[Rfam]
The record is an 89-nucleotide RNA sequence from Triplophysa rosa, which matches "mir-204 microRNA precursor family" in Rfam. On this family, see Chen et al., Genes Dev 2005: "The developmental miRNA profiles of zebrafish as determined by small RNA cloning". A search with the family's covariance model found it, with a score of 75 bits. Its family is annotated with miRNA-mediated post-transcriptional gene silencing and RISC complex in the Gene Ontology.

RNA sequence: CAGUGACCUCCUGGGUUUCCCUUUGUCAUCCUAUGCCUGGAGUUCCAGAUGAGGCAGGGACAGCAAAGGGGGAUCCAGCCGUCAACUUA
Numbered sequence: 001c002a003g004u005g006a007c008c009u010c011c012u013g014g015g016u017u018u019c020c021c022u023u024u025g026u027c028a029u030c031c032u033a034u035g036c037c038u039g040g041a042g043u044u045c046c047a048g049a050u051g052a053g054g055c056a057g058g059g060a061c062a063g064c065a066a067a068g069g070g071g072g073a074u075c076c077a078g079c080c081g082u083c084a085a086c087u088u089a
Base pairs, nucleotide, nucleotide: 018071019070020069021068022067023066025064026063029060030059031058032057035055036054037053038052